About this RNA
A member of the RNA family "tp2" from Enterobacillus tribolii, 122 nucleotides long.
[Rfam]
RNA sequence: GGUAUUCCUUAUCUGUCUAAUGGUUUGUUUAUCAAGAGCCGGUCUUGUGUGCAUUUUCACUGUGGUUCAGGAAAAUACACCAAGACAGGCCCAAUCACUUGGUUGCCUAGAUGUUGCACUAA
Numbered sequence: 001g002g003u004a005u006u007c008c009u010u011a012u013c014u015g016u017c018u019a020a021u022g023g024u025u026u027g028u029u030u031a032u033c034a035a036g037a038g039c040c041g042g043u044c045u046u047g048u049g050u051g052c053a054u055u056u057u058c059a060c061u062g063u064g065g066u067u068c069a070g071g072a073a074a075a076u077a078c079a080c081c082a083a084g085a086c087a088g089g090c091c092c093a094a095u096c097a098c099u100u101g102g103u104u105g106c107c108u109a110g111a112u113g114u115u116g117c118a119c120u121a122a
Stems, first nucleotide, its partner, number of pairs: 001107004022096003036092001038090003042086003047081001049080003054075005

On this family, see Hershberg et al., Nucleic Acids Res 2003: "A survey of small RNA-encoding genes in Escherichia coli". The match comes from Rfam's covariance-model search (64 bits).